[Rfam]
RNA sequence: GAAAACUAAAUGCCUAAUUUUCCGCCAUCAGCCUCAUCCGGAGGGGGUGGGAAAGCCGGGGAACCAGUCUCAGAUCUCUGGGGUGAAUCCGCAUCAAGAGCGAGAGUGAUCUCGUGGCGAAGUGGAAGAGAGCUUCCGUUCUCUAAUCCGACAGCUAACCCGGCCGGCUCAAUGGAAGAAACU
Numbered sequence: 001g002a003a004a005a006c007u008a009a010a011u012g013c014c015u016a017a018u019u020u021u022c023c024g025c026c027a028u029c030a031g032c033c034u035c036a037u038c039c040g041g042a043g044g045g046g047g048u049g050g051g052a053a054a055g056c057c058g059g060g061g062a063a064c065c066a067g068u069c070u071c072a073g074a075u076c077u078c079u080g081g082g083g084u085g086a087a088u089c090c091g092c093a094u095c096a097a098g099a100g101c102g103a104g105a106g107u108g109a110u111c112u113c114g115u116g117g118c119g120a121a122g123u124g125g126a127a128g129a130g131a132g133c134u135u136c137c138g139u140u141c142u143c144u145a146a147u148c149c150g151a152c153a154g155c156u157a158a159c160c161c162g163g164c165c166g167g168c169u170c171a172a173u174g175g176a177a178g179a180a181a182c183u
Stems, first nucleotide, its partner, number of pairs: 012168003018054009055164006065080002081149003089125004128143004
RNA: c-di-AMP riboswitch aptamer (ydaO/yuaA leader)